[Rfam]
RNA sequence: UGACGAUCAGAGCUAAUUGGAGUAUUUCUUGAGGAAUAUUGAUAGCAAGCUCAUGAAAUCUUUGAUUAGGUCUGGUUGUUG
Numbered sequence: 001u002g003a004c005g006a007u008c009a010g011a012g013c014u015a016a017u018u019g020g021a022g023u024a025u026u027u028c029u030u031g032a033g034g035a036a037u038a039u040u041g042a043u044a045g046c047a048a049g050c051u052c053a054u055g056a057a058a059u060c061u062u063u064g065a066u067u068a069g070g071u072c073u074g075g076u077u078g079u080u081g
Stems, first nucleotide, its partner, number of pairs: 002080010013069010024059001026057003030053004037047001039045002